Shown here is a 112-nucleotide RNA from Thalassotalea sp. HSM 43, a member of the family "Alpha operon ribosome binding site".
Rfam's curators write: The bacterial alpha operon ribosome binding site is surrounded by this complex pseudoknotted structure. Translation of the mRNA produces 4 ribosomal protein products, one of which (S4) acts as a translational repressor by binding to the nested pseudoknot region.
The literature on the family includes a 2001 paper in J Biol Chem by Schlax et al., "Translational repression of the Escherichia coli alpha operon mRNA: importance of an mRNA conformational switch and a ternary entrapment complex".
Rfam links the family to the GO term ribosome binding.
Taxonomically the source falls in Thalassotalea (Bacteria, Pseudomonadati, Pseudomonadota, Gammaproteobacteria).
By type it is a cis-regulatory element.
RNA sequence: CAAAAAUGUUGCUGGUUGAGUAUCCUUACGGGCUUUUCAACCGGUUUUCUUUUAACCCUAAUUUAUAGGAGAUGUGUUAGUGGCCCGUAUAGCUGGCAUUAACAUCCCUGAU
Numbered sequence: 001c002a003a004a005a006a007u008g009u010u011g012c013u014g015g016u017u018g019a020g021u022a023u024c025c026u027u028a029c030g031g032g033c034u035u036u037u038c039a040a041c042c043g044g045u046u047u048u049c050u051u052u053u054a055a056c057c058c059u060a061a062u063u064u065a066u067a068g069g070a071g072a073u074g075u076g077u078u079a080g081u082g083g084c085c086c087g088u089a090u091a092g093c094u095g096g097c098a099u100u101a102a103c104a105u106c107c108c109u110g111a112u
Stems, first nucleotide, its partner, number of pairs: 004053003008049001011046001013044001024096002029087004037111003